This 49-nucleotide RNA from Cervus hanglu belongs to the Rfam family "Guanidine-II riboswitch aptamer (mini-ykkC)". Rfam describes the family as follows. Simpler in structure and has fewer highly conserved nucleotide positions than the ykkC-yxkD leader. The organism belongs to Cervus hanglu, within Eukaryota.

[Rfam]
RNA sequence: GCUCCAGGACGGCCUGGGAGCGCGGUGGUCUCUCUCCAGGACGGCCUGG
Numbered sequence: 001g002c003u004c005c006a007g008g009a010c011g012g013c014c015u016g017g018g019a020g021c022g023c024g025g026u027g028g029u030c031u032c033u034c035u036c037c038a039g040g041a042c043g044g045c046c047u048g049g
Stems, first nucleotide, its partner, number of pairs: 003018006036049005